[Rfam]
RNA sequence: UUUGAAAAAGGCAAACCCAGUGAGAACUGGGGACGCAAAGCUACGGGUCUUCCAUAUAAGGAUGAUGGCCGAGUUACCAAAU
Numbered sequence: 001u002u003u004g005a006a007a008a009a010g011g012c013a014a015a016c017c018c019a020g021u022g023a024g025a026a027c028u029g030g031g032g033a034c035g036c037a038a039a040g041c042u043a044c045g046g047g048u049c050u051u052c053c054a055u056a057u058a059a060g061g062a063u064g065a066u067g068g069c070c071g072a073g074u075u076a077c078c079a080a081a082u
Stems, first nucleotide, its partner, number of pairs: 003079002011036002016031006034068001039075004044071003047066003
Source information: A member of the RNA family "c-di-GMP-I-GGC riboswitch aptamer" from Desulfosporosinus acididurans, 82 nucleotides long. Clan: c-di-GMP_I riboswitch clan. Lineage of the source: Bacteria > Bacillati > Bacillota > Clostridia > Desulfosporosinus. The literature on the family includes a 2017 paper in Proc Natl Acad Sci U S A by Weinberg et al., "Bioinformatic analysis of riboswitch structures uncovers variant classes with altered ligand specificity". The match comes from Rfam's covariance-model search (72 bits).